[Rfam]
RNA sequence: GGUCUGUGAUGAAUAGUAAAAGGUAUGAUUAUCCUAAGACUUGCACUUCCAUGACCUUUUCUCCCAGCAGUUUCUCGCCAGUCCUGGCACAGUAGUGGCGUGGCUGGCAGAGUGUUUGCUGACAGCUUGUGAUGUGCUCAGUUCAUGUUCACCUGAAGUAUCAGAGACAUGACUAGGAUCAGCAUCCAACAGUCCUACUUGAAGGAGUUUGGGGUCUUGGACUGUUAGAACUGGAUUUGUGAUCUGACUUUUCUGCUGAGACC
Numbered sequence: 001g002g003u004c005u006g007u008g009a010u011g012a013a014u015a016g017u018a019a020a021a022g023g024u025a026u027g028a029u030u031a032u033c034c035u036a037a038g039a040c041u042u043g044c045a046c047u048u049c050c051a052u053g054a055c056c057u058u059u060u061c062u063c064c065c066a067g068c069a070g071u072u073u074c075u076c077g078c079c080a081g082u083c084c085u086g087g088c089a090c091a092g093u094a095g096u097g098g099c100g101u102g103g104c105u106g107g108c109a110g111a112g113u114g115u116u117u118g119c120u121g122a123c124a125g126c127u128u129g130u131g132a133u134g135u136g137c138u139c140a141g142u143u144c145a146u147g148u149u150c151a152c153c154u155g156a157a158g159u160a161u162c163a164g165a166g167a168c169a170u171g172a173c174u175a176g177g178a179u180c181a182g183c184a185u186c187c188a189a190c191a192g193u194c195c196u197a198c199u200u201g202a203a204g205g206a207g208u209u210u211g212g213g214g215u216c217u218u219g220g221a222c223u224g225u226u227a228g229a230a231c232u233g234g235a236u237u238u239g240u241g242a243u244c245u246g247a248c249u250u251u252u253c254u255g256c257u258g259a260g261a262c263c
Base pairs, nucleotide, nucleotide: 001263002262003261004260037245038244039243041241048221049220050219051218053216054215061207062206063205064204065121066120067119068118069117070116078107079106080105081104082103083102085100086099129187131186132185133184134183135182144171145170146169147168149167150166152164